[Rfam]
Nucleotides: 084
Stems, first nucleotide, its partner, number of pairs: 001084010012073008021064002027058008
Number, partner (000 for none) and nucleotide at each position: 001084c002083u003082g004081u005080c006079g007078u008077a009076c010075g011000a012073g013072c014071g015070a016069g017068u018067u019066c020000c021064a022063c023000u024000a025000a026000u027058c028057a029056a030055g031054u032053u033052u034051u035000g036000a037000g038000u039000g040000u041000u042000c043000g044000a045000a046000a047000a048000u049000c050000a051034a052033a053032a054031a055030c056029u057028u058027g059000a060000c061000a062000c063022g064021u065000u066019g067018a068017g069016c070015u071014c072013g073012u074000c075010u076009g077008u078007g079006c080005g081004g082003c083002a084001g